[Rfam]
RNA sequence: AGCUUUGCUCAGUGGCAGUAUCAUAGCCAAUGAGGUUUAUCUGAGGUGCGAUUAUUGCUAAUUAAAAACGUUUCCCAAUACCCCACCAUAAUGACUUGAAAUAUAAUUGGCAUUGGCAAUUUUUGAUAGUCUCUAUGGAAA
Numbered sequence: 001a002g003c004u005u006u007g008c009u010c011a012g013u014g015g016c017a018g019u020a021u022c023a024u025a026g027c028c029a030a031u032g033a034g035g036u037u038u039a040u041c042u043g044a045g046g047u048g049c050g051a052u053u054a055u056u057g058c059u060a061a062u063u064a065a066a067a068a069c070g071u072u073u074c075c076c077a078a079u080a081c082c083c084c085a086c087c088a089u090a091a092u093g094a095c096u097u098g099a100a101a102u103a104u105a106a107u108u109g110g111c112a113u114u115g116g117c118a119a120u121u122u123u124u125g126a127u128a129g130u131c132u133c134u135a136u137g138g139a140a141a
Stems, first nucleotide, its partner, number of pairs: 020052003024048001026047003034042002086116002088113002092109003096105001130141001132139002
Rfam assigns this 141-nucleotide sequence from Saimiri boliviensis to the family "U4 spliceosomal RNA".
By type it is a spliceosomal small nuclear RNA.
Rfam 15.1 lists 32,178 matches to the family in 2,547 species.
Pairs were carried over by alignment from the consensus structure, which is taken from published work.
It scores 89 bits against the family's covariance model.
Its Rfam clan is "U4 clan".
The source organism's lineage runs through Eukaryota, Metazoa, Deuterostomia, Gnathostomata and Saimiri boliviensis.